[Rfam]
The record is a 73-nucleotide sequence from Homarus americanus, which matches "mir-252 microRNA precursor family" in Rfam. The match comes from Rfam's covariance-model search (51 bits). Rfam links the family to the GO terms miRNA-mediated post-transcriptional gene silencing and RISC complex. NCBI's taxonomy places the organism under Eukaryota, Eumetazoa, Bilateria, Panarthropoda, Homarus.

RNA sequence: CCCCGUUGAUAAGUACUUGAGCAGCAGGAGUCUAUUAACAUCUCUCCUGCGGCACUAGUACUUAGGAGCGGGU
Numbered sequence: 001c002c003c004c005g006u007u008g009a010u011a012a013g014u015a016c017u018u019g020a021g022c023a024g025c026a027g028g029a030g031u032c033u034a035u036u037a038a039c040a041u042c043u044c045u046c047c048u049g050c051g052g053c054a055c056u057a058g059u060a061c062u063u064a065g066g067a068g069c070g071g072g073u
Stems, first nucleotide, its partner, number of pairs: 002072006010064008019055001024050007